[Rfam]
RNA: ALIL pseudoknot
Organism: Sphingomonas sp. AAP5
RNA sequence: GGCAUAUUUUGCGCAGGCGGAGCUCGACCGCCCGUUCCGGCGAUGAUCGCCUUCAUUGACGGUGCCGAAGAUCAGAAAACAGCCUGGGAGGCUGUUUUCCUGAGGCACCGCGAUGUCUAUGGGGUCGAGCCGAUCUGCCGCGACCUGCCGAUCGCCCCA
Numbered sequence: 001g002g003c004a005u006a007u008u009u010u011g012c013g014c015a016g017g018c019g020g021a022g023c024u025c026g027a028c029c030g031c032c033c034g035u036u037c038c039g040g041c042g043a044u045g046a047u048c049g050c051c052u053u054c055a056u057u058g059a060c061g062g063u064g065c066c067g068a069a070g071a072u073c074a075g076a077a078a079a080c081a082g083c084c085u086g087g088g089a090g091g092c093u094g095u096u097u098u099c100c101u102g103a104g105g106c107a108c109c110g111c112g113a114u115g116u117c118u119a120u121g122g123g124g125u126c127g128a129g130c131c132g133a134u135c136u137g138c139c140g141c142g143a144c145c146u147g148c149c150g151a152u153c154g155c156c157c158c159a
Stems, first nucleotide, its partner, number of pairs: 016084003020080001120159005131154002134151002137148002140145001